[Rfam]
Background:
This 72-nucleotide RNA from Medicago truncatula belongs to the Rfam family "MIR2629 microRNA precursor family". A search with the family's covariance model found it, with a score of 62 bits. The family's consensus secondary structure was predicted with RNAalifold.
RNA sequence: UAUCGAGGUUUUCCUCGGUAGUUAACUGCAGUCGAUUUUGGACUUCCUCGACAGUUAACUAUCGAAGGGUAU
Numbered sequence: 001u002a003u004c005g006a007g008g009u010u011u012u013c014c015u016c017g018g019u020a021g022u023u024a025a026c027u028g029c030a031g032u033c034g035a036u037u038u039u040g041g042a043c044u045u046c047c048u049c050g051a052c053a054g055u056u057a058a059c060u061a062u063c064g065a066a067g068g069g070u071a072u
Stems, first nucleotide, its partner, number of pairs: 012068002015065014